[Rfam]
This 120-nucleotide RNA sequence from Syntrophotalea carbinolica belongs to the Rfam family "Molybdenum/Tungsten riboswitch aptamer (Moco RNA motif)".
The base pairs follow the family's consensus structure, which is taken from published work.
For this family Rfam cites "Identification of 22 candidate structured RNAs in bacteria using the CMfinder comparative genomics pipeline" (Weinberg et al., Nucleic Acids Res, 2007).
The source organism's lineage runs through Bacteria, Pseudomonadati, Desulfuromonadales, Syntrophotalea and Syntrophotalea carbinolica.

RNA sequence: UACAGAACACGUCUCCGAGUCUUAAGCCUAAAAGGAUGGACCUCAUGGCUGACGGGCCGGCAGGGUUUCGCUGGAAACGGCGGAGCCUCCCUUUCGGAAAGGAGAUAUUUGCAUUUUGAG
Numbered sequence: 001u002a003c004a005g006a007a008c009a010c011g012u013c014u015c016c017g018a019g020u021c022u023u024a025a026g027c028c029u030a031a032a033a034g035g036a037u038g039g040a041c042c043u044c045a046u047g048g049c050u051g052a053c054g055g056g057c058c059g060g061c062a063g064g065g066u067u068u069c070g071c072u073g074g075a076a077a078c079g080g081c082g083g084a085g086c087c088u089c090c091c092u093u094u095c096g097g098a099a100a101g102g103a104g105a106u107a108u109u110u111g112c113a114u115u116u117u118g119a120g
Stems, first nucleotide, its partner, number of pairs: 011106006019057004025050004033043003063088011089097002